[Rfam]
RNA sequence: GCUCAUAGAAUCACGGCGCUAAGUACCUGGCUGGCCGUGUGGCAACCCUCCUCAUCGAGCGGGGUGCCCCAGGGGAAGAGUCGGCCCGAACAAAAGCCUCGGGCAAGUCGGUGGA
Numbered sequence: 001g002c003u004c005a006u007a008g009a010a011u012c013a014c015g016g017c018g019c020u021a022a023g024u025a026c027c028u029g030g031c032u033g034g035c036c037g038u039g040u041g042g043c044a045a046c047c048c049u050c051c052u053c054a055u056c057g058a059g060c061g062g063g064g065u066g067c068c069c070c071a072g073g074g075g076a077a078g079a080g081u082c083g084g085c086c087c088g089a090a091c092a093a094a095a096g097c098c099u100c101g102g103g104c105a106a107g108u109c110g111g112u113g114g115a
Stems, first nucleotide, its partner, number of pairs: 001081004010040001012039006022032002041068003046064003050059001051057001084104006
The record is a 115-nucleotide RNA sequence from Glutamicibacter uratoxydans, which matches "SAM (S-adenosyl methionine) riboswitch aptamer" in Rfam. Taxonomically the source falls in Glutamicibacter (Bacteria, Actinomycetota, Actinomycetes, Micrococcales). It scores 67 bits against the family's covariance model. The base pairs follow the family's consensus structure, which is taken from published work. Rfam's curators write: SAM-IV is a mRNA element that regulates gene expression via direct sensing of S-adenosylmethionine (SAM or AdoMet). For this family Rfam cites "The aptamer core of SAM-IV riboswitches mimics the ligand-binding site of SAM-I riboswitches" (Weinberg et al., RNA, 2008).